Rfam assigns this 63-nucleotide RNA to the family "L20-Deltaproteobacteria ribosomal protein leader". For this family Rfam cites "Discovery of 20 novel ribosomal leader candidates in bacteria and archaea" (Eckert and Weinberg, BMC Microbiol, 2020). The family's RNA type in Rfam is cis-regulatory leader. The sequence is in the family's curated seed alignment.
[Rfam]
RNA sequence: GUCCGUGAACCGUGAGGAAACAGUCUCCCCUUGCGGAUCCGGCGAAAUACACAACAAAAGGAG
Numbered sequence: 001g002u003c004c005g006u007g008a009a010c011c012g013u014g015a016g017g018a019a020a021c022a023g024u025c026u027c028c029c030c031u032u033g034c035g036g037a038u039c040c041g042g043c044g045a046a047a048u049a050c051a052c053a054a055c056a057a058a059a060g061g062a063g
Stems, first nucleotide, its partner, number of pairs: 003042003007039002010036008